c-di-GMP-I riboswitch aptamer: a 106-nucleotide RNA sequence from Candidatus Brocadia sinica. Lineage of the source: Bacteria > Pseudomonadati > Candidatus Brocadiaceae > Candidatus Brocadia > Candidatus Brocadia sinica. The match comes from Rfam's covariance-model search (54 bits).

RNA sequence: UUACGACAAAGGUAAACCCUGAGUGAUCAGGGGGGCGCAAAGUAAAGGGUCUUUAAACUAUUUUCCUGCAAACGCAGGAAAAUAGAAAGAUAGCCUUACUGCCGAA
Numbered sequence: 001u002u003a004c005g006a007c008a009a010a011g012g013u014a015a016a017c018c019c020u021g022a023g024u025g026a027u028c029a030g031g032g033g034g035g036c037g038c039a040a041a042g043u044a045a046a047g048g049g050u051c052u053u054u055a056a057a058c059u060a061u062u063u064u065c066c067u068g069c070a071a072a073c074g075c076a077g078g079a080a081a082a083u084a085g086a087a088a089g090a091u092a093g094c095c096u097u098a099c100u101g102c103c104g105a106a
Stems, first nucleotide, its partner, number of pairs: 012038002017032006041100004046096003049091003058085012